[Rfam]
The record is a 324-nucleotide sequence from Sus scrofa, which matches "7SK RNA" in Rfam. The organism belongs to Sus, within Eukaryota. Rfam classes the family as a non-coding RNA gene. Rfam 15.1 lists 49,373 matches to the family in 668 species. The family's consensus secondary structure is taken from published work. From the family's description: 7SK was discovered as an abundant small nuclear RNA in the mid-70s but a possible function has only recently been suggested. Two independent studies have found that 7SK RNA binds the CDK9/cyclin T complex (known as elongation factor P-TEFb).
Nucleotides: 324
Stems, first nucleotide, its partner, number of pairs: 001108003005102007013093002018090002024087010035074002037070003042067004046062003116171002118168004122139004127135002140162003147158003210324002213321003222315002225312001
Number, partner (000 for none) and nucleotide at each position: 001108g002107g003106a004000u005102g006101u007100g008099a009098g010097g011096g012000c013093g014092a015000u016000c017000u018090g019089g020000c021000u022000g023000c024087g025086a026085c027084a028083u029082c030081u031080g032079u033078u034000a035074c036073c037070c038069c039068a040000u041000u042067g043066a044065u045064c046062g047061c048060c049000a050000g051000g052000g053000u054000u055000g056000a057000u058000u059000c060048g061047g062046c063000u064045g065044a066043u067042c068039u069038g070037g071000c072000u073036g074035g075000c076000u077000a078033g079032g080031c081030g082029g083028g084027u085026g086025u087024c088000c089019c090018c091000u092014u093013c094000c095000u096011c097010c098009c099008u100007c101006a102005c103000c104000g105000c106003u107002c108001c109000a110000u111000g112000u113000g114000c115000g116171u117170c118168c119167c120166u121165c122139c123138c124137g125136a126000a127135g128134c129000u130000g131000c132000g133000c134128g135127c136125u137124c138123g139122g140162u141161c142160g143000a144000a145000g146000a147158g148157g149156a150000c151000g152000a153000c154000c155000a156149u157148c158147c159000c160142c161141g162140a163000u164000a165121g166120a167119g168118g169000a170117g171116g172000a173000c174000c175000g176000u177000u178000c179000u180000u181000u182000g183000g184000u185000c186000a187000a188000g189000g190000g191000u192000a193000u194000a195000c196000g197000a198000g199000u200000a201000g202000c203000u204000g205000c206000g207000c208000u209000c210324c211323c212000c213321u214320g215319c216000u217000a218000a219000a220000a221000a222315c223314a224000c225312u226000g227000a228000u229000u230000u231000a232000a233000a234000u235000g236000g237000u238000c239000c240000a241000c242000c243000u244000u245000g246000g247000a248000g249000a250000c251000u252000g253000a254000g255000u256000u257000u258000u259000c260000a261000g262000a263000u264000a265000a266000u267000c268000c269000u270000u271000u272000g273000g274000u275000u276000u277000c278000c279000c280000a281000u282000u283000c284000u285000u286000c287000a288000g289000u290000a291000c292000c293000u294000c295000c296000u297000u298000c299000u300000u301000u302000u303000u304000u305000g306000g307000a308000u309000g310000a311000u312225g313000u314223u315222g316000a317000g318000u319215g320214u321213a322000u323211g324210g